[Rfam]
RNA sequence: UCGGUUCCGGUUCACGUCUGCGACCGCAGGCGACCCGGCGACC
Numbered sequence: 001u002c003g004g005u006u007c008c009g010g011u012u013c014a015c016g017u018c019u020g021c022g023a024c025c026g027c028a029g030g031c032g033a034c035c036c037g038g039c040g041a042c043c
Stems, first nucleotide, its partner, number of pairs: 003043003007038004015032007